Shown here is a 595-nucleotide part of an RNA from Carpinus fangiana, a member of the family "Eukaryotic large subunit ribosomal RNA". The base pairs follow the family's consensus structure, which is taken from published work. A search with the family's covariance model found it, with a score of 3332 bits. Gene Ontology terms of the family: structural constituent of ribosome and ribosome.
RNA sequence: CGGGGAAAGAAGACCCUGUUGAGCUUGACUCUAGUUUUGACAUUGUGAAAAGACAUAGGGGGUGUAGAAUAGGUGGGAGCUUCGGCGCCGGUGAAAUACCACUACCCUUAUCGUUUUUUUACUUAUUCAAUUGAGCGGAGCUGGGCUUCAUCGCCCAUCUUCUGGCGUCAAGGUCCCUCGCGGGCCGAUCCGGGUUGAAGACAUUGUCAGGUGGGGAGUUUGGCUGGGGCGGCACAUCUGUUAAACAAUAACGCAGGUGUCCUAAGGGGGACUCAUGGAGAACAGAAAUCUCCAGUAGAGCAAAAGGGCAAAAGUCCCCUUGAUUUUGAUUUUCAGUGUGAAUACAAACCAUGAAAGUGUGGCCUAUCGAUCCUUUAGUCCCUCGGAAUUUGAGGCUAGAGGUGCCAGAAAAGUUACCACAGGGAUAACUGGCUUGUGGCAGCCAAGCGUUCAUAGCGACGUUGCUUUUUGAUCCUUCGAUGUCGGCUCUUCCUAUCAUACCGAAGCAGAAUUCGGUAAGCGUUGGAUUGUUCACCCACUAAUAGGGAACGUGAGCUGGGUUUAGACCGUCGUGAGACAGGUUAGUUUUACCCUA
Numbered sequence: 001c002g003g004g005g006a007a008a009g010a011a012g013a014c015c016c017u018g019u020u021g022a023g024c025u026u027g028a029c030u031c032u033a034g035u036u037u038u039g040a041c042a043u044u045g046u047g048a049a050a051a052g053a054c055a056u057a058g059g060g061g062g063u064g065u066a067g068a069a070u071a072g073g074u075g076g077g078a079g080c081u082u083c084g085g086c087g088c089c090g091g092u093g094a095a096a097u098a099c100c101a102c103u104a105c106c107c108u109u110a111u112c113g114u115u116u117u118u119u120u121a122c123u124u125a126u127u128c129a130a131u132u133g134a135g136c137g138g139a140g141c142u143g144g145g146c147u148u149c150a151u152c153g154c155c156c157a158u159c160u161u162c163u164g165g166c167g168u169c170a171a172g173g174u175c176c177c178u179c180g181c182g183g184g185c186c187g188a189u190c191c192g193g194g195u196u197g198a199a200g201a202c203a204u205u206g207u208c209a210g211g212u213g214g215g216g217a218g219u220u221u222g223g224c225u226g227g228g229g230c231g232g233c234a235c236a237u238c239u240g241u242u243a244a245a246c247a248a249u250a251a252c253g254c255a256g257g258u259g260u261c262c263u264a265a266g267g268g269g270g271a272c273u274c275a276u277g278g279a280g281a282a283c284a285g286a287a288a289u290c291u292c293c294a295g296u297a298g299a300g301c302a303a304a305a306g307g308g309c310a311a312a313a314g315u316c317c318c319c320u321u322g323a324u325u326u327u328g329a330u331u332u333u334c335a336g337u338g339u340g341a342a343u344a345c346a347a348a349c350c351a352u353g354a355a356a357g358u359g360u361g362g363c364c365u366a367u368c369g370a371u372c373c374u375u376u377a378g379u380c381c382c383u384c385g386g387a388a389u390u391u392g393a394g395g396c397u398a399g400a401g402g403u404g405c406c407a408g409a410a411a412a413g414u415u416a417c418c419a420c421a422g423g424g425a426u427a428a429c430u431g432g433c434u435u436g437u438g439g440c441a442g443c444c445a446a447g448c449g450u451u452c453a454u455a456g457c458g459a460c461g462u463u464g465c466u467u468u469u470u471g472a473u474c475c476u477u478c479g480a481u482g483u484c485g486g487c488u489c490u491u492c493c494u495a496u497c498a499u500a501c502c503g504a505a506g507c508a509g510a511a512u513u514c515g516g517u518a519a520g521c522g523u524u525g526g527a528u529u530g531u532u533c534a535c536c537c538a539c540u541a542a543u544a545g546g547g548a549a550c551g552u553g554a555g556c557u558g559g560g561u562u563u564a565g566a567c568c569g570u571c572g573u574g575a576g577a578c579a580g581g582u583u584a585g586u587u588u589u590a591c592c593c594u595a
Stems, first nucleotide, its partner, number of pairs: 003594003007589002015423004020419002022415005028219004036211007045122010055111007072103005079086002126199005136192004144155003172186005222235001223233003236258006261362002267319006273299002276294006300309002324348003329343004350359003373401006381395004432473001434471001436470001438466006447457002484559001485557004489551001490548005497522001500517006524538003528534001565583004569578003
The source organism's lineage runs through Eukaryota, Streptophyta, fabids, Fagales and Carpinus.